[Rfam]
RNA sequence: AGCCUAAACCUCGCAAGAGGCAUGGCGCUAAAACCAACCACGAUAGUAAGCUCCCCGUUCAGUUUACCGUGGUUGGUCGUGCGCCGAAAGGUGCACGGAUGGCGUAAGUCAUC
Numbered sequence: 001a002g003c004c005u006a007a008a009c010c011u012c013g014c015a016a017g018a019g020g021c022a023u024g025g026c027g028c029u030a031a032a033a034c035c036a037a038c039c040a041c042g043a044u045a046g047u048a049a050g051c052u053c054c055c056c057g058u059u060c061a062g063u064u065u066a067c068c069g070u071g072g073u074u075g076g077u078c079g080u081g082c083g084c085c086g087a088a089a090g091g092u093g094c095a096c097g098g099a100u101g102g103c104g105u106a107a108g109u110c111a112u113c
Stems, first nucleotide, its partner, number of pairs: 002026003009020004034076009047066006078097008098113006
RNA: LOOT RNA